[Rfam]
RNA sequence: UUUAAGAUAGGGAAUGAAGUUCUCCCUGGAUUAAUAUUCCAAACCGCUGAUAAGCUAAUGACUUCUAAGCACCG
Numbered sequence: 001u002u003u004a005a006g007a008u009a010g011g012g013a014a015u016g017a018a019g020u021u022c023u024c025c026c027u028g029g030a031u032u033a034a035u036a037u038u039c040c041a042a043a044c045c046g047c048u049g050a051u052a053a054g055c056u057a058a059u060g061a062c063u064u065c066u067a068a069g070c071a072c073c074g
Base pairs, nucleotide, nucleotide: 010026011025012024013023016065017064018063019062020061021060046055047054048053
About this RNA
A member of the RNA family "Fluoride riboswitch aptamer (crcB RNA motif)" from Maledivibacter halophilus, 74 nucleotides long. Rfam links the family to the GO terms response to fluoride and positive regulation of gene expression.